This 138-nucleotide sequence from Cohnella luojiensis belongs to the Rfam family "c-di-AMP riboswitch aptamer (ydaO/yuaA leader)".

[Rfam]
RNA sequence: CAUAUCUCAUAGCUUAGUUUCCGGAUUGCCGGAAAGCGGGGGAACCAAUCAAUUGGGGCGAAUUGGUCCAUCAGGGCCAUAGGGGACCAUCUAUCCCGAGUCCGUCAGCUAACCUCGUAAGCUUUGGAUGGGUCAUGU
Numbered sequence: 001c002a003u004a005u006c007u008c009a010u011a012g013c014u015u016a017g018u019u020u021c022c023g024g025a026u027u028g029c030c031g032g033a034a035a036g037c038g039g040g041g042g043a044a045c046c047a048a049u050c051a052a053u054u055g056g057g058g059c060g061a062a063u064u065g066g067u068c069c070a071u072c073a074g075g076g077c078c079a080u081a082g083g084g085g086a087c088c089a090u091c092u093a094u095c096c097c098g099a100g101u102c103c104g105u106c107a108g109c110u111a112a113c114c115u116c117g118u119a120a121g122c123u124u125u126g127g128a129u130g131g132g133u134c135a136u137g138u
Base pairs, nucleotide, nucleotide: 011123012122013121014120018035019034020033021032022031023030024029036118037117038116039115040114041113046055047054056103057102058101064079065078066077067076082097083096084095085094